[Rfam]
Shown here is a 100-nucleotide sequence from Clostridium senegalense, a member of the family "Purine riboswitch aptamer".
Taxonomically the source falls in Clostridium (Bacteria, Bacillati, Bacillota, Clostridiaceae).
RNA sequence: AUCACUAAAAAGUAGUAACUUCGUAUAACUCCAAUAAUAUGGUUUGGGGGUCUCUACCAGGUACCGUAAAUUCCUGAUUACGAAGAAGAGAGUGUAACAU
Dot-bracket structure: ..................(((((((...((((((.........))))))........((((.(.......).))))..)))))))...............
The match comes from Rfam's covariance-model search (81 bits).